[Rfam]
RNA sequence: GUUUGAUAAAGGCAAACCCUGAGCAAUCAGGGGACGCAAAGGAAAGGGUCUUCCCCUGUACACGGUAGUAGAGGGGUAAAAUAACGGGUUGUUACGUAUACGGAAAUACGGGUAGCACAAAAAGAUAGCCUUACUGCCAAA
Numbered sequence: 001g002u003u004u005g006a007u008a009a010a011g012g013c014a015a016a017c018c019c020u021g022a023g024c025a026a027u028c029a030g031g032g033g034a035c036g037c038a039a040a041g042g043a044a045a046g047g048g049u050c051u052u053c054c055c056c057u058g059u060a061c062a063c064g065g066u067a068g069u070a071g072a073g074g075g076g077u078a079a080a081a082u083a084a085c086g087g088g089u090u091g092u093u094a095c096g097u098a099u100a101c102g103g104a105a106a107u108a109c110g111g112g113u114a115g116c117a118c119a120a121a122a123a124g125a126u127a128g129c130c131u132u133a134c135u136g137c138c139a140a141a
Stems, first nucleotide, its partner, number of pairs: 012037002017032006040135002043132001045131003048126005
Rfam assigns this 141-nucleotide RNA sequence from Candidatus Brocadia fulgida to the family "c-di-GMP-I riboswitch aptamer". NCBI's taxonomy places the organism under Bacteria, Pseudomonadati, Planctomycetota, Candidatus Brocadiales, Candidatus Brocadia.